[Rfam]
A member of the RNA family "rpsB sRNA" from Caulobacter vibrioides, 119 nucleotides long. It scores 42 bits against the family's covariance model. The family's RNA type in Rfam is small RNA. A reference for the family is Meyer et al. (2009), "Identification of candidate structured RNAs in the marine organism 'Candidatus Pelagibacter ubique'", BMC Genomics. The family has 4 seed sequences and 245 matches in Rfam 15.1. The source organism's lineage runs through Bacteria, Pseudomonadota, Caulobacterales, Caulobacter and Caulobacter vibrioides.

RNA sequence: CACACGUGGACGUUCGGCCGCACCGGGGAGACAUCCCGGCGUCGCCGUUCCGGUCCCGCUCCAGAAUGGUCUGGAACGGGGGUGUCCACGGAGGUUCAACCGGAAAAAGGAUUAAGGCC
Numbered sequence: 001c002a003c004a005c006g007u008g009g010a011c012g013u014u015c016g017g018c019c020g021c022a023c024c025g026g027g028g029a030g031a032c033a034u035c036c037c038g039g040c041g042u043c044g045c046c047g048u049u050c051c052g053g054u055c056c057c058g059c060u061c062c063a064g065a066a067u068g069g070u071c072u073g074g075a076a077c078g079g080g081g082g083u084g085u086c087c088a089c090g091g092a093g094g095u096u097c098a099a100c101c102g103g104a105a106a107a108a109g110g111a112u113u114a115a116g117g118c119c
Base pairs, nucleotide, nucleotide: 001093003091005090006089007088008087009086010085011084016046017045024038025037027036055080056079057078058077060075061074062073063072064071065070